[Rfam]
RNA sequence: CUUGAUCGAGCCGAGCCACAGCGGCUGGUCCUCGGCGCGGUCCUGGCCGUAGGCGGCGAGCAGGGCGUCCGCCUC
Numbered sequence: 001c002u003u004g005a006u007c008g009a010g011c012c013g014a015g016c017c018a019c020a021g022c023g024g025c026u027g028g029u030c031c032u033c034g035g036c037g038c039g040g041u042c043c044u045g046g047c048c049g050u051a052g053g054c055g056g057c058g059a060g061c062a063g064g065g066c067g068u069c070c071g072c073c074u075c
Stems, first nucleotide, its partner, number of pairs: 014026004031071001038065001043060002047056003
RNA: ASpks TB sRNA